This 89-nucleotide sequence from Brevibacillus fluminis belongs to the Rfam family "c-di-GMP-I riboswitch aptamer".
The organism belongs to Brevibacillus, within Bacteria.
GEMM was predicted in a large-scale screen for bacterial structured RNA regulatory elements.
Pairs were carried over by alignment from the consensus structure, which is taken from published work.
Rfam 15.1 lists 5,092 matches to the family in 1,772 species.
It scores 78 bits against the family's covariance model.
RNA sequence: UUGCGAAAAAGGCAAACCAUGCCGAAAGGAUGGGACGCAAAGCCGUGGGUCUACGGAGGGAACCCCUCUAUGAUUGCCAGGUUGCCGCA
Dot-bracket structure: ...........((...((((.((....))))))...))..((((.((((((....((((.....))))...)))..)))))))......
Numbered sequence: 001u002u003g004c005g006a007a008a009a010a011g012g013c014a015a016a017c018c019a020u021g022c023c024g025a026a027a028g029g030a031u032g033g034g035a036c037g038c039a040a041a042g043c044c045g046u047g048g049g050u051c052u053a054c055g056g057a058g059g060g061a062a063c064c065c066c067u068c069u070a071u072g073a074u075u076g077c078c079a080g081g082u083u084g085c086c087g088c089a
Stems, first nucleotide, its partner, number of pairs: 012038002017033004022029002041083004046079003049074003056068004